Notes:
Small nucleolar RNA R38: a 70-nucleotide sequence from Oryzias melastigma. The match comes from Rfam's covariance-model search (57 bits). The family's RNA type in Rfam is C/D-box small nucleolar RNA.
RNA sequence: UUGAGCCAAAGAUGAUACAAGUUAUCCCUGUCUGAAUUUGGCUGUGGAGUCGUGGUAACCUGAGGCUUGA
Dot-bracket structure: (((((((........................................................)))))))
The literature on the family includes a 1995 paper in Trends Biochem Sci by Bachellerie et al., "Antisense snoRNAs: a family of nucleolar RNAs with long complementarities to rRNA". The base pairs follow the family's consensus structure, which was predicted with PFOLD. Taxonomically the source falls in Oryzias (Eukaryota, Deuterostomia, Actinopteri, Neoteleostei). Rfam's curators write: snoR38 is a C/D box small nucleolar RNA conserved across yeast, human, Arabidopsis and rice. It is encoded in the intron of elongation factor-1 gamma in both pombe and cerevisiae. snoR38 guides the methylation of 2'-O-ribose sites in 28S rRNA. Gene Ontology terms of the family: RNA processing and nucleolus.